Shown here is a 95-nucleotide sequence from Odocoileus virginianus, a member of the family "Rhodo-rpoB RNA". NCBI's taxonomy places the organism under Eukaryota, Sarcopterygii, Tetrapoda, Amniota, Odocoileus virginianus. The base pairs follow the family's consensus structure, which is taken from published work. Rfam classes the family as a cis-regulatory element. A search with the family's covariance model found it, with a score of 34 bits.
[Rfam]
RNA sequence: GGAUCGGGUGACCGCCUGGUGGGAUGCGGUCAUGAGUGGACCUGCCAGCAAUGUCUCUGCAGGGGAGGAAGGCACCCUCCCCCAUGCCUGUUCAC
Numbered sequence: 001g002g003a004u005c006g007g008g009u010g011a012c013c014g015c016c017u018g019g020u021g022g023g024a025u026g027c028g029g030u031c032a033u034g035a036g037u038g039g040a041c042c043u044g045c046c047a048g049c050a051a052u053g054u055c056u057c058u059g060c061a062g063g064g065g066a067g068g069a070a071g072g073c074a075c076c077c078u079c080c081c082c083c084a085u086g087c088c089u090g091u092u093c094a095c
Stems, first nucleotide, its partner, number of pairs: 001043002004040002010031006065095001067093003070089005